[Rfam]
RNA sequence: UUGCGGUACCGGGCCCCUCUGACGACUGCCACGCAGUCGUGAUGUCGGACCGCAUCG
Numbered sequence: 001u002u003g004c005g006g007u008a009c010c011g012g013g014c015c016c017c018u019c020u021g022a023c024g025a026c027u028g029c030c031a032c033g034c035a036g037u038c039g040u041g042a043u044g045u046c047g048g049a050c051c052g053c054a055u056c057g
Base pairs, nucleotide, nucleotide: 006051009048010047011046012045022040023039024038025037026036027035028034029033